[Rfam]
RNA sequence: AUGAAAGGUGAAGGGGUGCUUCGGCAAUUUUGAACUGUCUCACGUAGAUGUUUCAUGAUUUUGAGUGAAAUUCCCCGAGCAGUCUCAGGCAGAGAUGCCGUCCCGGAAGGGAAGACCCGUCGAUUGGGCCUGUCCAGUGGCGUAGACAUGUUGGGAUUGAGCUUGUGACAGGUUCUAAGACGGUAGCUUGCUACAGCACAGUCAUGCAACCCCACCCUCUUACAGGGGUGAACAGAAUGGGGAUUACUCUCACCAUUCC
Numbered sequence: 001a002u003g004a005a006a007g008g009u010g011a012a013g014g015g016g017u018g019c020u021u022c023g024g025c026a027a028u029u030u031u032g033a034a035c036u037g038u039c040u041c042a043c044g045u046a047g048a049u050g051u052u053u054c055a056u057g058a059u060u061u062u063g064a065g066u067g068a069a070a071u072u073c074c075c076c077g078a079g080c081a082g083u084c085u086c087a088g089g090c091a092g093a094g095a096u097g098c099c100g101u102c103c104c105g106g107a108a109g110g111g112a113a114g115a116c117c118c119g120u121c122g123a124u125u126g127g128g129c130c131u132g133u134c135c136a137g138u139g140g141c142g143u144a145g146a147c148a149u150g151u152u153g154g155g156a157u158u159g160a161g162c163u164u165g166u167g168a169c170a171g172g173u174u175c176u177a178a179g180a181c182g183g184u185a186g187c188u189u190g191c192u193a194c195a196g197c198a199c200a201g202u203c204a205u206g207c208a209a210c211c212c213c214a215c216c217c218u219c220u221u222a223c224a225g226g227g228g229u230g231a232a233c234a235g236a237a238u239g240g241g242g243a244u245u246a247c248u249c250u251c252a253c254c255a256u257u258c259c
Stems, first nucleotide, its partner, number of pairs: 003258003007254005014211002017208003022065001024062001026060003036050005069245003073242004088099004101112004114181001116179001120177001122175002125172001127169001129167001139163003148157002213230006
RNA: RNase MRP
Organism: Ceratodon purpureus